[Rfam]
RNA sequence: GAAGGAGCUUGCUAAACAGCUGGGUGAUUUAAAGCUAUCAGAUUCCUUUAGCUUUAAGUCAUGCAGCUGUUGAACAAGCUCUGGU
Numbered sequence: 001g002a003a004g005g006a007g008c009u010u011g012c013u014a015a016a017c018a019g020c021u022g023g024g025u026g027a028u029u030u031a032a033a034g035c036u037a038u039c040a041g042a043u044u045c046c047u048u049u050a051g052c053u054u055u056a057a058g059u060c061a062u063g064c065a066g067c068u069g070u071u072g073a074a075c076a077a078g079c080u081c082u083g084g085u
Stems, first nucleotide, its partner, number of pairs: 004082008013073001015071008024062012